A member of the RNA family "SAM-I/IV (S-adenosyl methionine) riboswitch aptamer" from Sphingomonas xinjiangensis, 114 nucleotides long. Pairs were carried over by alignment from the consensus structure, which is taken from published work. A search with the family's covariance model found it, with a score of 51 bits. On this family, see Trausch et al., PNAS 2014: "Structural basis for diversity in the SAM clan of riboswitches". Rfam links the family to the GO terms regulation of gene expression and S-adenosylmethionine metabolic process. Lineage of the source: Bacteria > Pseudomonadati > Alphaproteobacteria > Sphingomonadales > Sphingomonas.
[Rfam]
RNA sequence: GCACUGCAUCAAGAGUCGGGCCGACGCCUGGCACCAACCUGCUCCCGAGCAAGGUGGUGCCUCCGCUUUACCAAGCGGAGGGAUGUGGCCGGACCGGCAACCAUCGGGUUCCAA
Dot-bracket structure: .....(((((....(.(((((....))))).)(((..((((((....))).))).))).......................))))).((((...))))................